Source information:
Bacterial RNase P class A: a 343-nucleotide RNA from Rhizobacter gummiphilus. Taxonomically the source falls in Rhizobacter (Bacteria, Pseudomonadati, Burkholderiales, Sphaerotilaceae). Pairs were carried over by alignment from the consensus structure, which is taken from published work. A search with the family's covariance model found it, with a score of 215 bits. By type it is a ribozyme.

[Rfam]
RNA sequence: GAAGUGGAACAGACCGCCGCUGGUGCAGGGCCCGAAAGGGUGCACUGGAGGAAGGUCCGGACUGCACAGGGCGGCGUAGCAGCUAACGGCUGUCCACCGCGAGGUGAGGAUCAGAGCAACAGAGACGAGUCGGCCGGGGGCGCAAGCCCGCGGCAGGGUGAAACGGGCAAUCUCUACGCGCAGCAACACCAAAUAGGCCAGCGUUGAUGUGGCUCCGCGGAGCUGGCGGGUAGGUGGCAUCGAGCCGUGCAGUGAUGCACGGCCCAGAGGAAUGGCGGUCACGGCCGGCAUGUCGCAAGGCAUGCCGGCUGCACAGAAUCCGGCCUAUCGUUCCGCUUCACUU
Number, nucleotide and partner (000 for none) at each position: 001g339002a338003a337004g336005u335006g334007g333008a332009a331010c330011a328012g280013a279014c278015c277016g276017c275018c274019g000020c048021u047022g046023g045024u044025g043026c042027a041028g000029g000030g000031c000032c000033c000034g000035a000036a000037a000038g000039g000040g000041u027042g026043c025044a024045c023046u022047g021048g020049a000050g000051g000052a000053a326054g325055g324056u000057c323058c322059g321060g320061a319062c183063u182064g181065c180066a000067c000068a000069g215070g214071g213072c212073g000074g179075c178076g177077u176078a175079g093080c092081a091082g090083c089084u000085a000086a000087c000088g000089g083090c082091u081092g080093u079094c108095c106096a105097c104098c103099g000100c000101g000102a000103g098104g097105u096106g095107a000108g094109g174110a173111u000112c000113a000114g172115a171116g168117c167118a000119a000120c000121a000122g000123a000124g000125a000126c000127g000128a000129g000130u000131c157132g000133g154134c153135c152136g151137g000138g149139g148140g147141c146142g000143c000144a000145a000146g141147c140148c139149c138150g000151c136152g135153g134154c133155a000156g000157g131158g000159u000160g000161a000162a000163a000164c000165g000166g000167g117168c116169a000170a000171u115172c114173u110174c109175u078176a077177c076178g075179c074180g065181c064182a063183g062184c000185a000186a000187c236188a235189c234190c233191a000192a000193a000194u000195a000196g000197g227198c226199c225200a224201g223202c222203g000204u000205u000206g000207a000208u219209g218210u217211g216212g072213c071214u070215c069216c211217g210218c209219g208220g000221a000222g202223c201224u200225g199226g198227c197228g000229g000230g000231u000232a000233g190234g189235u188236g187237g000238c000239a000240u000241c000242g000243a000244g263245c262246c261247g260248u259249g258250c257251a256252g000253u000254g000255a000256u251257g250258c249259a248260c247261g246262g245263c244264c000265c000266a000267g000268a000269g000270g000271a000272a000273u000274g018275g017276c016277g015278g014279u013280c012281a000282c000283g000284g000285c000286c000287g000288g000289c000290a000291u000292g000293u000294c000295g000296c000297a000298a000299g000300g000301c000302a000303u000304g000305c000306c000307g000308g000309c000310u000311g000312c000313a000314c000315a000316g000317a000318a000319u061320c060321c059322g058323g057324c055325c054326u053327a000328u011329c000330g010331u009332u008333c007334c006335g005336c004337u003338u002339c001340a000341c000342u000343u000